Shown here is a 92-nucleotide sequence from Ectothiorhodospiraceae bacterium AqS1, a member of the family "Selenocysteine transfer RNA". For this family Rfam cites "tRNAscan-SE: a program for improved detection of transfer RNA genes in genomic sequence" (Lowe and Eddy, Nucleic Acids Res, 1997). It scores 74 bits against the family's covariance model.
Nucleotides: 092
Stems, first nucleotide, its partner, number of pairs: 001092008011027003015024003029045005048066005069083004
Number, partner (000 for none) and nucleotide at each position: 001092g002091g003090a004089a005088g006087a007086g008085g009000a010000u011027c012026g013025c014000a015024c016023c017022c018000c019000g020000g021000u022017g023016g024015g025013g026012c027011g028000c029045c030044c031043g032042g033041a034000c035000u036000u037000c038000a039000a040000a041033u042032c043031c044030g045029g046000u047000g048066a049065g050064a051063u052062g053000c054000g055000u056000a057000c058000c059000a060000c061000g062052u063051g064050u065049c066048u067000g068000g069083u070082g071081g072080g073000u074000u075000c076000g077000a078000c079000u080072c081071c082070c083069a084000c085008c086007c087006u088005c089004u090003u091002c092001c